[Rfam]
Shown here is an 83-nucleotide RNA from Pseudoruegeria aquimaris, a member of the family "tRNA". Its family is annotated with triplet codon-amino acid adaptor activity in the Gene Ontology. The family's RNA type in Rfam is transfer RNA. The family has 954 seed sequences and 5,335,975 matches in Rfam 15.1. The family's consensus secondary structure is taken from published work. About the family: Transfer RNA (tRNA) molecules are approximately 80 nucleotides in length. The source organism's lineage runs through Bacteria, Pseudomonadati, Pseudomonadota, Roseobacteraceae and Pseudoruegeria.
RNA sequence: GCGGGCGUGGUGGAAUGGUAGACACAGAAGACUUAAAAUCUUCAGGCCGCAAGGCCGUGCCGGUUCGAGCCCGGCCGCCCGUA
Numbered sequence: 001g002c003g004g005g006c007g008u009g010g011u012g013g014a015a016u017g018g019u020a021g022a023c024a025c026a027g028a029a030g031a032c033u034u035a036a037a038a039u040c041u042u043c044a045g046g047c048c049g050c051a052a053g054g055c056c057g058u059g060c061c062g063g064u065u066c067g068a069g070c071c072c073g074g075c076c077g078c079c080c081g082u083a
Base pairs, nucleotide, nucleotide: 001082002081003080004079005078006077007076010025011024012023027043028042029041030040031039059075060074061073062072063071